[Rfam]
RNA: mir-395 microRNA precursor family
RNA sequence: GUGGUACCUAGUGUUCCCUCGAACACUUCAACGACCAGAACUUUCAGCUACAACAUUCUCUGUGUUCUAUGAAGUGUUUGGGGGAACCCUUGGUAUCAU
Numbered sequence: 001g002u003g004g005u006a007c008c009u010a011g012u013g014u015u016c017c018c019u020c021g022a023a024c025a026c027u028u029c030a031a032c033g034a035c036c037a038g039a040a041c042u043u044u045c046a047g048c049u050a051c052a053a054c055a056u057u058c059u060c061u062g063u064g065u066u067c068u069a070u071g072a073a074g075u076g077u078u079u080g081g082g083g084g085a086a087c088c089c090u091u092g093g094u095a096u097c098a099u
Stems, first nucleotide, its partner, number of pairs: 005095004011089001013087008022079002024076007033067002